[Rfam]
A member of the RNA family "U7 small nuclear RNA" from Sinocyclocheilus grahami, 56 nucleotides long. Lineage of the source: Eukaryota > Metazoa > Gnathostomata > Otophysi > Sinocyclocheilus. From the family's description: Animal histone pre-mRNAs are spliced by a different mechanism than nuclear pre-mRNAs and self-splicing introns. This processing involves the U7 snRNP, which contains only one RNA species: U7. The 5' end of U7 RNA is thought to base-pair to a conserved spacer element downstream of the cleavage site in histone pre-mRNA. This family contains a number of annotated U7 pseudogenes. The match comes from Rfam's covariance-model search (48 bits).
RNA sequence: CAGAAAUAGUCUCUUUUAGUAUUUGUCCAGUAGGUUUCCUUUAAAAGGAAACCCAU
Numbered sequence: 001c002a003g004a005a006a007u008a009g010u011c012u013c014u015u016u017u018a019g020u021a022u023u024u025g026u027c028c029a030g031u032a033g034g035u036u037u038c039c040u041u042u043a044a045a046a047g048g049a050a051a052c053c054c055a056u
Stems, first nucleotide, its partner, number of pairs: 033053008